Source information
This 76-nucleotide RNA from Triticum aestivum belongs to the Rfam family "Small nucleolar RNA R12". Pairs were carried over by alignment from the consensus structure, which was predicted with PFOLD. On this family, see Chen et al., Nucleic Acids Res 2003: "The high diversity of snoRNAs in plants: identification and comparative study of 120 snoRNA genes from Oryza sativa". snoR12 is a C/D box small nucleolar RNA, which acts as a methylation guide for 25S ribosomal RNA in plants. snoR12 has been alternatively named snoZ44 in Arabidopsis and snoZ131 in rice.

RNA sequence: AUCUGGGUGAUGAAGAAAAUCAUUCGGAUUCCCACUGAUUUUUCAUGAUUAUUACAACCGGCUACUUCUGACGGAU
Dot-bracket structure: (((((..................................................................)))))